[Rfam]
RNA: mir-8364 microRNA precursor family
Organism: Pristionchus pacificus
RNA sequence: UCUUCAUGUCAAGUGCUCUCUCACCGGUCAGAGAGGCGAGAAAGUGUAUGAAAUGAAGAGA
Number, nucleotide and partner (000 for none) at each position: 001u059002c058003u057004u056005c055006a054007u053008g000009u000010c050011a000012a000013g047014u046015g045016c044017u043018c000019u041020c040021u039022c038023a000024c000025c000026g000027g000028u000029c000030a000031g000032a000033g000034a000035g000036g000037c000038g022039a021040g020041a019042a000043a017044g016045u015046g014047u013048a000049u000050g010051a000052a000053a007054u006055g005056a004057a003058g002059a001060g000061a000